[Rfam]
Nucleotides: 119
Base pairs, nucleotide, nucleotide: 011031012030013029014028015027016026032067033066035064036063041056042055043054044053045052079116080115081114082113084112085111086110087109089108090107091106092105093104
Number, partner (000 for none) and nucleotide at each position: 001000a002000a003000a004000a005000a006000a007000a008000g009000a010000g011031c012030u013029c014028g015027c016026g017000u018000u019000g020000a021000c022000a023000g024000u025000u026016c027015g028014c029013g030012a031011g032067c033066c034000a035064a036063u037000c038000g039000u040000a041056u042055c043054u044053u045052c046000c047000a048000u049000g050000a051000c052045g053044a054043a055042g056041a057000u058000a059000c060000u061000u062000u063036a064035u065000g066033g067032g068000a069000g070000a071000g072000g073000a074000g075000a076000a077000a078000c079116c080115g081114g082113a083000g084112g085111a086110a087109g088000a089108a090107c091106u092105u093104a094000u095000g096000g097000g098000g099000a100000a101000a102000u103000g104093u105092a106091a107090g108089u109087c110086u111085u112084c113082u114081c115080c116079g117000c118000g119000g
Rfam assigns this 119-nucleotide RNA sequence from Baia soyae to the family "ylbH leader". Taxonomically the source falls in Baia (Bacteria, Bacillati, Bacillota, Thermoactinomycetaceae). Gene Ontology term of the family: regulation of gene expression. The family's RNA type in Rfam is cis-regulatory leader. On this family, see Barrick et al., Proc Natl Acad Sci U S A 2004: "New RNA motifs suggest an expanded scope for riboswitches in bacterial genetic control". This family is a putative regulatory RNA structure that is found upstream of the ylbH gene in B. subtilis and related low GC Gram-positive bacteria.